[Rfam]
RNA sequence: AAAAUUCUUCGGGGCAGGGUGAUAUGCAUAAAGCAUAAAUUCCCAACCGACGGUAAGUGUUCAGAGCGUAAAGAUGCACGAGUCCGUGACCUGCGAAAGCAGCUGAUUUGGUGAGAAUCCAAAACCGACAGUAUAGUCUGGAUGGGAGAAGAAUAGA
Dot-bracket structure: ...(((((((......(((......................))).[[((((((............................[[))))...((........))....(((((.......)))))]])).(((....]]))).......)))))))...
Numbered sequence: 001a002a003a004a005u006u007c008u009u010c011g012g013g014g015c016a017g018g019g020u021g022a023u024a025u026g027c028a029u030a031a032a033g034c035a036u037a038a039a040u041u042c043c044c045a046a047c048c049g050a051c052g053g054u055a056a057g058u059g060u061u062c063a064g065a066g067c068g069u070a071a072a073g074a075u076g077c078a079c080g081a082g083u084c085c086g087u088g089a090c091c092u093g094c095g096a097a098a099g100c101a102g103c104u105g106a107u108u109u110g111g112u113g114a115g116a117a118u119c120c121a122a123a124a125c126c127g128a129c130a131g132u133a134u135a136g137u138c139u140g141g142a143u144g145g146g147a148g149a150a151g152a153a154u155a156g157a
Stems, first nucleotide, its partner, number of pairs: 004154007017044003046137002048127002050087004082125002091102002107123005129140003

Rfam assigns this 157-nucleotide RNA from Eubacterium sp. CAG:156 to the family "FMN riboswitch aptamer (RFN element)". The family has 146 seed sequences and 6,230 matches in Rfam 15.1.